[Rfam]
RNA sequence: GCCACAUGAUGAUCUCAUAGACUGCAUUAGCACUUUGUGCAAUGAUGACCUAUUAUCUAUCACCCUUGACUGAUGGCU
Numbered sequence: 001g002c003c004a005c006a007u008g009a010u011g012a013u014c015u016c017a018u019a020g021a022c023u024g025c026a027u028u029a030g031c032a033c034u035u036u037g038u039g040c041a042a043u044g045a046u047g048a049c050c051u052a053u054u055a056u057c058u059a060u061c062a063c064c065c066u067u068g069a070c071u072g073a074u075g076g077c078u
Stems, first nucleotide, its partner, number of pairs: 001077004030040004
RNA: Small nucleolar RNA SNORD83